[Rfam]
Rfam assigns this 131-nucleotide RNA sequence from Orycteropus afer to the family "U12 minor spliceosomal RNA".
RNA sequence: CUGUAAGAAUAACGAUCCAGGGUGACACCUGGAUUCUCAUGCUAAUGUAAGACAAAUUUUUGAGUGGGUAAAGAUUGCCCCUAAGGUGACCUGCCUACUUUGUGGGAUGUCUGGGAGUCGUGAUCUGCCUG
Numbered sequence: 001c002u003g004u005a006a007g008a009a010u011a012a013c014g015a016u017c018c019a020g021g022g023u024g025a026c027a028c029c030u031g032g033a034u035u036c037u038c039a040u041g042c043u044a045a046u047g048u049a050a051g052a053c054a055a056a057u058u059u060u061u062g063a064g065u066g067g068g069u070a071a072a073g074a075u076u077g078c079c080c081c082u083a084a085g086g087u088g089a090c091c092u093g094c095c096u097a098c099u100u101u102g103u104g105g106g107a108u109g110u111c112u113g114g115g116a117g118u119c120g121u122g123a124u125c126u127g128c129c130u131g
Stems, first nucleotide, its partner, number of pairs: 014035008036051002039048002065131005072126007081115002084112005090106005
The base pairs follow the family's consensus structure.
It scores 80 bits against the family's covariance model.